[Rfam]
RNA sequence: AAUAUCAAAGGGAAUGAAGUACUCCCUUGGGAAACCUAAACUGCUUAUUCAAGCUGAUGACUUCUACGAUUUU
Numbered sequence: 001a002a003u004a005u006c007a008a009a010g011g012g013a014a015u016g017a018a019g020u021a022c023u024c025c026c027u028u029g030g031g032a033a034a035c036c037u038a039a040a041c042u043g044c045u046u047a048u049u050c051a052a053g054c055u056g057a058u059g060a061c062u063u064c065u066a067c068g069a070u071u072u073u
Base pairs, nucleotide, nucleotide: 010026011025012024013023016064017063018062019061020060043054044053045052046051
A member of the RNA family "Fluoride riboswitch aptamer (crcB RNA motif)", 73 nucleotides long. The family's consensus secondary structure is taken from published work.